[Rfam]
RNA sequence: ACGACCUUACUUGAACAGGAUCUGUUCUAUAGAAUCGUACUGCUGCAUCCUUGACUAAUAAGGAGGCAAGCACCUAAGCUUGGUUGAUGACAUCUGACCUGUGGGCCAGAGCGUGAUUAAUGGCCUAGAUCAGUAGCUGCUGCUGAUUCCCUUUGCUUUGGAGGAUCGUUCCUGUCCAGCUCUGGCUGGCCGAGGUGGCUCAAAGGUUGUCUGACAGGCU
Numbered sequence: 001a002c003g004a005c006c007u008u009a010c011u012u013g014a015a016c017a018g019g020a021u022c023u024g025u026u027c028u029a030u031a032g033a034a035u036c037g038u039a040c041u042g043c044u045g046c047a048u049c050c051u052u053g054a055c056u057a058a059u060a061a062g063g064a065g066g067c068a069a070g071c072a073c074c075u076a077a078g079c080u081u082g083g084u085u086g087a088u089g090a091c092a093u094c095u096g097a098c099c100u101g102u103g104g105g106c107c108a109g110a111g112c113g114u115g116a117u118u119a120a121u122g123g124c125c126u127a128g129a130u131c132a133g134u135a136g137c138u139g140c141u142g143c144u145g146a147u148u149c150c151c152u153u154u155g156c157u158u159u160g161g162a163g164g165a166u167c168g169u170u171c172c173u174g175u176c177c178a179g180c181u182c183u184g185g186c187u188g189g190c191c192g193a194g195g196u197g198g199c200u201c202a203a204a205g206g207u208u209g210u211c212u213g214a215c216a217g218g219c220u
Stems, first nucleotide, its partner, number of pairs: 001038002003035001006032002013027006044068003048064006078219005097207004102202007110170004120159001122157003127152002129147008171194001173192002176189005